[Rfam]
RNA: mir-548 microRNA precursor family
Organism: Colobus angolensis
RNA sequence: UGUUAGGUUGGUGCAAAAGUAAUGGCGGUUUUUGCCAUUAUUUGCAAUGGCAAAAGCCGCCAUUACUUUUGCACCGACCUAACA
Dot-bracket structure: (((((((((((((((((((((((((((((((((((((((......)))))))))))))))))))))))))))))))))))))))